[Rfam]
7SK RNA: a 330-nucleotide RNA from Marmota monax.
Clan: 7SK clan.
Rfam 15.1 lists 49,373 matches to the family in 668 species.
The literature on the family includes a 2002 paper in Curr Biol by Blencowe, "Transcription: surprising role for an elusive small nuclear RNA".
About the family: 7SK was discovered as an abundant small nuclear RNA in the mid-70s but a possible function has only recently been suggested. Two independent studies have found that 7SK RNA binds the CDK9/cyclin T complex (known as elongation factor P-TEFb). P-TEFb activates transcription by phosphorylating the C-terminal domain of RNA polymerase II. This process is negatively regulated by the 7SK RNP. The secondary structure of 7SK RNA shown here was proposed by Wasserman and Steitz on the basis of chemical modification and enzymatic cleavage experiments.
Lineage of the source: Eukaryota > Vertebrata > Mammalia > Sciuromorpha > Marmota.
RNA sequence: GGAUGUGAGGGCGAUCUGGCUGCGACAUCUGUCACCCCAUUGAUCGCCAGGGUUGAUUCGGCUGAUCUGGCUGGCUAGGCGGGUGUCCCCUUCCUCCCUCACCGCUCCAUGUGCGUCCCUCCCGAAGCUGCGCGCUCGGUCGAAGAGGACGACCUUCCCCGAUAGAGGAGGACCGUUCUUCGGUCAAGGGUAUACGAGUAGCUGCGCUCCCCUGCUAGAACCUCCAAACAAGCUCUCAAGGUCCAUUUGUUAUAGUCUUGCUGUGAGAUGGGUUUUAUGUCUCUGGAACAUUCCUUCAGUCUACCCUUUCUGGAGGUUGUGACUUCCAUG
Dot-bracket structure: (((.(((((((.((...((....((((((((((.(((((..(((((((...........))).)))))))..))...)))))))))).)).))..)))))))...))).......((((((((((.((.....))))))(((....(((......))).)))..)))).)).............................(((...((.(.(.((......((....(((((.............)))))...))....)).).)))...)))....................(.(.((((.(((.........)))...))))...).)